[Rfam]
RNA sequence: GGGUUAUGUCGAUGAUGAUAAUGCUAUAUUAUCUUGAAGAGAGGUGAUGACUUAAAAAAUCAUGCUCAAUAAGAAUUUGCUAAAACCC
Numbered sequence: 001g002g003g004u005u006a007u008g009u010c011g012a013u014g015a016u017g018a019u020a021a022u023g024c025u026a027u028a029u030u031a032u033c034u035u036g037a038a039g040a041g042a043g044g045u046g047a048u049g050a051c052u053u054a055a056a057a058a059a060u061c062a063u064g065c066u067c068a069a070u071a072a073g074a075a076u077u078u079g080c081u082a083a084a085a086c087c088c
Base pairs, nucleotide, nucleotide: 001088002087003086004085005082006081013079014078

Small nucleolar RNA SNORD115: an 88-nucleotide RNA from Carlito syrichta. The organism belongs to Carlito, within Eukaryota. Rfam classes the family as a C/D-box small nucleolar RNA. Gene Ontology terms of the family: nucleolus and RNA processing. The base pairs follow the family's consensus structure, which was predicted with PFOLD.